The family of this 97-nucleotide RNA from Phocicoccus pinnipedialis is "TPP riboswitch aptamer (THI element)". The base pairs follow the family's consensus structure, which is taken from published work. The source organism's lineage runs through Bacteria, Bacillati, Caryophanales, Salinicoccaceae and Phocicoccus. The match comes from Rfam's covariance-model search (68 bits).
RNA sequence: AUGAACCAUAAGGGGUGCGUAAAGCUGAGAGUGAAAUUUCACAACCCUAGAACCUGAUUGAGAUAAUGCUCGCGAAGGAAUAUGGUAGUUUCUUGUG
Numbered sequence: 001a002u003g004a005a006c007c008a009u010a011a012g013g014g015g016u017g018c019g020u021a022a023a024g025c026u027g028a029g030a031g032u033g034a035a036a037u038u039u040c041a042c043a044a045c046c047c048u049a050g051a052a053c054c055u056g057a058u059u060g061a062g063a064u065a066a067u068g069c070u071c072g073c074g075a076a077g078g079a080a081u082a083u084g085g086u087a088g089u090u091u092c093u094u095g096u097g
Stems, first nucleotide, its partner, number of pairs: 006085005011048004017025002032041003053078003059072004
Dot-bracket structure: .....(((((((((..((.....))......(((....)))...))))....(((...((((......))))...)))..)))))............